[Rfam]
RNA sequence: AGACCACAUGUUUAUAUUACAUGUUAAGCCUUGCGGACGGGCGGGUCGGUUGCCGA
Number, nucleotide and partner (000 for none) at each position: 001a000002g047003a046004c045005c044006a024007c023008a022009u021010g020011u019012u000013u000014a000015u000016a000017u000018u000019a011020c010021a009022u008023g007024u006025u000026a000027a000028g000029c000030c000031u000032u000033g000034c000035g000036g000037a000038c000039g000040g000041g000042c000043g000044g005045g004046u003047c002048g000049g000050u000051u000052g000053c000054c000055g000056a000
RNA: Streptococcus sRNA SpF59 (ldcC RNA)